[Rfam]
RNA sequence: AAGCCCACAAAUGAAUCUGCUUAUCUGAAUGUGUUUCUGCAGAAACUUAGGAAAAGCUGGCAAUGGUAAAGCCAUGUUAUGAGCCUUACUUAAAAAUAAAAUUUUGGGGGGCGCCUGGGUGGCGCAGUC
Numbered sequence: 001a002a003g004c005c006c007a008c009a010a011a012u013g014a015a016u017c018u019g020c021u022u023a024u025c026u027g028a029a030u031g032u033g034u035u036u037c038u039g040c041a042g043a044a045a046c047u048u049a050g051g052a053a054a055a056g057c058u059g060g061c062a063a064u065g066g067u068a069a070a071g072c073c074a075u076g077u078u079a080u081g082a083g084c085c086u087u088a089c090u091u092a093a094a095a096a097u098a099a100a101a102u103u104u105u106g107g108g109g110g111g112c113g114c115c116u117g118g119g120u121g122g123c124g125c126a127g128u129c
Base pairs, nucleotide, nucleotide: 003061004060005059016043017042018041019040020039071123072122073121074120083112084111085110086109087108089106092103093102

Background
This 129-nucleotide RNA from Felis catus belongs to the Rfam family "Small nucleolar RNA SNORA33". The source organism's lineage runs through Eukaryota, Eumetazoa, Teleostomi, Mammalia and Felis. Rfam describes the family as follows. ACA33 is a member of the H/ACA class of snoRNA that guide the sites of modification of uridines to pseudouridines. Rfam links the family to the GO terms nucleolus and RNA processing. Pairs were carried over by alignment from the consensus structure, which was predicted with PFOLD.